[Rfam]
RNA sequence: UAUAUGCACUAGGGGUGUUUUUUAACUGAGAUGGAUAUCAUCCAAACCCUUUGAACCUGAACUAGCUUAUACUAGCGGAGGAAAGUGUUGAAUCUCAUCU
Number, nucleotide and partner (000 for none) at each position: 001u000002a000003u000004a000005u000006g088007c087008a086009c085010u084011a050012g049013g048014g047015g000016u044017g026018u025019u024020u000021u000022u000023u000024a019025a018026c017027u000028g000029a000030g000031a000032u000033g043034g042035a041036u040037a000038u000039c000040a036041u035042c034043c033044a016045a000046a000047c014048c013049c012050u011051u000052u000053g000054a000055a000056c081057c080058u079059g000060a000061a000062c075063u074064a073065g072066c000067u000068u000069a000070u000071a000072c065073u064074a063075g062076c000077g000078g000079a058080g057081g056082a000083a000084a010085g009086u008087g007088u006089u000090g000091a000092a000093u000094c000095u000096c000097a000098u000099c000100u000
Shown here is a 100-nucleotide sequence from Staphylococcus epidermidis, a member of the family "TPP riboswitch aptamer (THI element)".
Rfam links the family to the GO term thiamine pyrophosphate binding.
The organism belongs to Staphylococcus epidermidis, within Bacteria.
The match comes from Rfam's covariance-model search (79 bits).